[Rfam]
RNA sequence: AGUUGCAAGUUCAAGGCUCUAGCAGAAGUGCUUACAGUGUGGCCAUGUCAGAUUCCAAUGAAUCUGUGAUUUCUGCU
Numbered sequence: 001a002g003u004u005g006c007a008a009g010u011u012c013a014a015g016g017c018u019c020u021a022g023c024a025g026a027a028g029u030g031c032u033u034a035c036a037g038u039g040u041g042g043c044c045a046u047g048u049c050a051g052a053u054u055c056c057a058a059u060g061a062a063u064c065u066g067u068g069a070u071u072u073c074u075g076c077u
Stems, first nucleotide, its partner, number of pairs: 015044004021077007028040003049066007
A member of the RNA family "Mammalian CPEB3 ribozyme" from Alligator sinensis, 77 nucleotides long.